[Rfam]
RNA sequence: AAAAAGGGUGUUUGCAUGCUAAAUGGCACGCAGUCUCUCUGGGGCUGCGCAUAAUCGCUAGCAAAUGAUUCUGGACACAUAAUUGCUGGAAACGGGGGCUGCCGAUUUCCAUUGCAUUUGGCGCCUCU
Numbered sequence: 001a002a003a004a005a006g007g008g009u010g011u012u013u014g015c016a017u018g019c020u021a022a023a024u025g026g027c028a029c030g031c032a033g034u035c036u037c038u039c040u041g042g043g044g045c046u047g048c049g050c051a052u053a054a055u056c057g058c059u060a061g062c063a064a065a066u067g068a069u070u071c072u073g074g075a076c077a078c079a080u081a082a083u084u085g086c087u088g089g090a091a092a093c094g095g096g097g098g099c100u101g102c103c104g105a106u107u108u109c110c111a112u113u114g115c116a117u118u119u120g121g122c123g124c125c126u127c128u
Stems, first nucleotide, its partner, number of pairs: 008078005013028003029049008050073002053070004096126004101122005108116001110114001
RNA: U11 spliceosomal RNA
Organism: Argiope bruennichi